[Rfam]
RNA sequence: CUCUGGAGAGCACCCGGUAAUAUUUUACCGGGCACCAAAGGGGUAAAGCUGAAGUUCAGCCAAACUCUCAGGUAAAAGGACAGAG
Number, nucleotide and partner (000 for none) at each position: 001c085002u084003c083004u082005g081006g000007a000008g000009a000010g000011c000012a000013c032014c031015c030016g029017g028018u027019a026020a000021u000022a000023u000024u000025u000026u019027a018028c017029c016030g015031g014032g013033c000034a073035c072036c071037a000038a068039a000040g000041g067042g066043g065044u000045a000046a000047a000048g060049c059050u000051g000052a000053a000054g000055u000056u000057c000058a000059g049060c048061c000062a000063a000064a000065c043066u042067c041068u038069c000070a000071g036072g035073u034074a000075a000076a000077a000078g000079g000080a000081c005082a004083g003084a002085g001

Rfam assigns this 85-nucleotide sequence from Thermanaerosceptrum fracticalcis to the family "Glycine riboswitch aptamer".
A search with the family's covariance model found it, with a score of 42 bits.